This 73-nucleotide sequence from Caenispirillum salinarum belongs to the Rfam family "Makes More Granules Regulator RNA (mmgR)". A reference for the family is Lagares et al. (2016), "Phylogenetic distribution and evolutionary pattern of an alpha-proteobacterial small RNA gene that controls polyhydroxybutyrate accumulation in Sinorhizobium meliloti", Mol Phylogenet Evol. Clan: suhB sRNA clan. Rfam 15.1 lists 1,791 matches to the family in 918 species. SuhB later renamed mmgR (makes more granules regulator) was a putative non-coding RNA found multiple times in the Agrobacterium tumefaciens genome and related alpha-proteobacteria. The base pairs follow the family's consensus structure. By type it is a small RNA.
[Rfam]
RNA sequence: CCCGGCUGCUUCUUGGACGUUUCCUCCCUAGACUUGGGCCGUGCCGGGUGCACGGCCUUUUUUUUGCUCUCAC
Numbered sequence: 001c002c003c004g005g006c007u008g009c010u011u012c013u014u015g016g017a018c019g020u021u022u023c024c025u026c027c028c029u030a031g032a033c034u035u036g037g038g039c040c041g042u043g044c045c046g047g048g049u050g051c052a053c054g055g056c057c058u059u060u061u062u063u064u065u066g067c068u069c070u071c072a073c
Stems, first nucleotide, its partner, number of pairs: 008018001010016001036058009